[Rfam]
RNA sequence: GGUGGAGGACUAAGAAGGCUGAGUCUGAUGAAGCAAGACUCUGCUGAUACAAUCCUCCUAGAGAAAAGGGUUUGAGAGAGCAGCUCUUACCGGGAGAAAGUCACAGGGCUGACUGUAGUACCCAACAUUC
Numbered sequence: 001g002g003u004g005g006a007g008g009a010c011u012a013a014g015a016a017g018g019c020u021g022a023g024u025c026u027g028a029u030g031a032a033g034c035a036a037g038a039c040u041c042u043g044c045u046g047a048u049a050c051a052a053u054c055c056u057c058c059u060a061g062a063g064a065a066a067a068g069g070g071u072u073u074g075a076g077a078g079a080g081c082a083g084c085u086c087u088u089a090c091c092g093g094g095a096g097a098a099a100g101u102c103a104c105a106g107g108g109c110u111g112a113c114u115g116u117a118g119u120a121c122c123c124a125a126c127a128u129u130c
Stems, first nucleotide, its partner, number of pairs: 003060001004058006017045003021041006068123004079114002081111007092102002